[Rfam]
RNA: rne-II RNA
Organism: Azotobacter vinelandii
RNA sequence: AUACGUGCAGGGUGGAGAUGCACAACCAUCGGAUUGCGUAGCUGCAAGCUUUCAUCCAGACGCACAAGGCGUCCGCUGCCGAUGCUUGAUUCCUCCUCCUGAUUGAUUGCUUUCUGCCACAACAGUAAGCAGGAGACGUAGUCGCGACUCUGGCCACCAGCCAAAUGUUGCUUGACACGGGAACGGACGACAACCUUUCCUGAACGGCCCCUGUCACCGACCGCGAGAGUCGUGUGUGCCGAACGCCGUUUCCGGCAGCCCGGAAACCGA
Number, nucleotide and partner (000 for none) at each position: 001a000002u000003a000004c000005g000006u000007g000008c000009a000010g000011g000012g000013u000014g096015g095016a094017g093018a000019u000020g000021c000022a000023c088024a087025a086026c000027c084028a083029u082030c081031g080032g079033a000034u000035u000036g076037c075038g074039u000040a050041g049042c048043u000044g000045c000046a000047a000048g042049c041050u040051u000052u000053c000054a000055u000056c000057c000058a000059g073060a072061c071062g070063c000064a000065c000066a000067a000068g000069g000070c062071g061072u060073c059074c038075g037076c036077u000078g000079c032080c031081g030082a029083u028084g027085c000086u025087u024088g023089a000090u000091u000092c000093c017094u016095c015096c014097u134098c133099c132100u131101g130102a000103u000104u000105g000106a000107u000108u000109g000110c000111u000112u000113u000114c000115u000116g000117c000118c000119a000120c000121a000122a000123c000124a000125g000126u000127a000128a000129g000130c101131a100132g099133g098134a097135g000136a000137c206138g205139u204140a000141g176142u175143c174144g171145c170146g169147a168148c000149u000150c000151u163152g162153g161154c160155c000156a000157c000158c000159a000160g154161c153162c152163a151164a000165a000166u000167g000168u147169u146170g145171c144172u000173u000174g143175a142176c141177a000178c000179g000180g200181g199182a198183a197184c000185g195186g194187a000188c000189g000190a000191c000192a000193a000194c186195c185196u000197u183198u182199c181200c180201u000202g000203a000204a139205c138206g137207g000208c000209c000210c000211c000212u000213g000214u000215c236216a235217c234218c232219g231220a230221c229222c000223g000224c000225g000226a000227g000228a000229g221230u220231c219232g218233u000234g217235u216236g215237u000238g000239c000240c000241g000242a000243a000244c000245g000246c000247c000248g267249u266250u265251u264252c263253c262254g261255g000256c000257a000258g000259c000260c000261c254262g253263g252264a251265a250266a249267c248268c000269g000270a000